The record is a 149-nucleotide RNA sequence from Juglans regia, which matches "Small nucleolar RNA snoR136" in Rfam.
Pairs were carried over by alignment from the consensus structure, which was predicted with mfold.
Its family is annotated with nucleolus and RNA processing in the Gene Ontology.
RNA sequence: UGGGCUUCAUUAUUUGUGAUCUUCAUGAUUCGGCUUACACUAAAGCUUUAAUUUGUGUUUGGCUAUACUUGAAUGAAGCCCAGAUAGUCGUUCUCCUCGCUAUCCAGUGCUUCCUUCAUGUUGCAUUAGGACGUCGGGGAACUAAAUUC
Numbered sequence: 001u002g003g004g005c006u007u008c009a010u011u012a013u014u015u016g017u018g019a020u021c022u023u024c025a026u027g028a029u030u031c032g033g034c035u036u037a038c039a040c041u042a043a044a045g046c047u048u049u050a051a052u053u054u055g056u057g058u059u060u061g062g063c064u065a066u067a068c069u070u071g072a073a074u075g076a077a078g079c080c081c082a083g084a085u086a087g088u089c090g091u092u093c094u095c096c097u098c099g100c101u102a103u104c105c106a107g108u109g110c111u112u113c114c115u116u117c118a119u120g121u122u123g124c125a126u127u128a129g130g131a132c133g134u135c136g137g138g139g140a141a142c143u144a145a146a147u148u149c
Stems, first nucleotide, its partner, number of pairs: 001083001003080003008075004016068002025064001032063001034061001037058004090142007098133002103131003107127001113120001